[Rfam]
RNA: Bacterial large subunit ribosomal RNA, nucleotides 2543 to 2789
Organism: Parahoeflea phototrophica
RNA sequence: GGAAUAUUGAUAGGAUCUGUCCCUAGUACGAGAGGACCGGGAUGGACGUAUCUCUGGUGGACCUGUUGUCGUGCCAACGGCAUAGCAGGGUAGCUAUAUACGGAAUGGAUAACCGCUGAAGGCAUCUAAGCGGGAAACCAACCUAAAAACGAGUAUUCCCUGAGAGUCGUGGAAGACUACCACGUUGAUAGGCUGGGUGUGGAAGCGCAGUAAUGUGUGAAGCUUACCAGUACUAAUAGCUCGAUCG
Numbered sequence: 001g002g003a004a005u006a007u008u009g010a011u012a013g014g015a016u017c018u019g020u021c022c023c024u025a026g027u028a029c030g031a032g033a034g035g036a037c038c039g040g041g042a043u044g045g046a047c048g049u050a051u052c053u054c055u056g057g058u059g060g061a062c063c064u065g066u067u068g069u070c071g072u073g074c075c076a077a078c079g080g081c082a083u084a085g086c087a088g089g090g091u092a093g094c095u096a097u098a099u100a101c102g103g104a105a106u107g108g109a110u111a112a113c114c115g116c117u118g119a120a121g122g123c124a125u126c127u128a129a130g131c132g133g134g135a136a137a138c139c140a141a142c143c144u145a146a147a148a149a150c151g152a153g154u155a156u157u158c159c160c161u162g163a164g165a166g167u168c169g170u171g172g173a174a175g176a177c178u179a180c181c182a183c184g185u186u187g188a189u190a191g192g193c194u195g196g197g198u199g200u201g202g203a204a205g206c207g208c209a210g211u212a213a214u215g216u217g218u219g220a221a222g223c224u225u226a227c228c229a230g231u232a233c234u235a236a237u238a239g240c241u242c243g244a245u246c247g
Stems, first nucleotide, its partner, number of pairs: 001159008011145004017045007047102005055096003062089005067082006106140003113133005164242004168184005189235003192231005197225001199223001205218005